[Rfam]
Nucleotides: 076
Stems, first nucleotide, its partner, number of pairs: 012037002017032006041069002045066003048061005
Number, partner (000 for none) and nucleotide at each position: 001000u002000c003000a004000c005000g006000a007000g008000a009000a010000g011000g012037g013036c014000a015000a016000a017032c018031c019030c020029g021028c022027c023000g024000a025000g026000a027022g028021g029020c030019g031018g032017g033000g034000a035000c036013g037012c038000a039000a040000a041069g042068c043000c044000a045066g046065g047064g048061g049060c050059c051058c052057c053000c054000u055000c056000a057052g058051g059050g060049g061048c062000c063000g064047c065046c066045c067000a068042g069041c070000c071000a072000c073000c074000g075000a076000a

A member of the RNA family "c-di-GMP-I riboswitch aptamer" from Actinotalea soli, 76 nucleotides long. The family's consensus secondary structure is taken from published work. From the family's description: GEMM was predicted in a large-scale screen for bacterial structured RNA regulatory elements. The match comes from Rfam's covariance-model search (56 bits).